Rfam assigns this 183-nucleotide sequence from Burkholderia humptydooensis to the family "RT-15 RNA". Pairs were carried over by alignment from the consensus structure, which is taken from published work. The source organism's lineage runs through Bacteria, Betaproteobacteria, Burkholderiales, Burkholderiaceae and Burkholderia humptydooensis. By type it is a small RNA.

RNA sequence: UAUCGCCCGCAUCGUGGAGGUCAAGGCCGCCAUGACUGAGCGAUCUCUCAAUCUGGUCGUGCCGCUGGCUCACAAGGCCACCGCCAUGCGCAAUGAGGAAACUGACCGCCGGCGUGCGGAAAGGUCCAGCGCAGUUUCCCGACUGAGCAAUCGGCUGGGCGACGUAGAUUGCACGAUACCUCC
Numbered sequence: 001u002a003u004c005g006c007c008c009g010c011a012u013c014g015u016g017g018a019g020g021u022c023a024a025g026g027c028c029g030c031c032a033u034g035a036c037u038g039a040g041c042g043a044u045c046u047c048u049c050a051a052u053c054u055g056g057u058c059g060u061g062c063c064g065c066u067g068g069c070u071c072a073c074a075a076g077g078c079c080a081c082c083g084c085c086a087u088g089c090g091c092a093a094u095g096a097g098g099a100a101a102c103u104g105a106c107c108g109c110c111g112g113c114g115u116g117c118g119g120a121a122a123g124g125u126c127c128a129g130c131g132c133a134g135u136u137u138c139c140c141g142a143c144u145g146a147g148c149a150a151u152c153g154g155c156u157g158g159g160c161g162a163c164g165u166a167g168a169u170u171g172c173a174c175g176a177u178a179c180c181u182c183c
Base pairs, nucleotide, nucleotide: 004042005041006040012035013034014033015032016031017030019028020027021026057176058175059174060173061172062171063083064082066080067079068078069077070076087133088132089131090130091129097127098126099125102124103123106119107118108117109116135162136161138159139158140157141156143154144153145152146151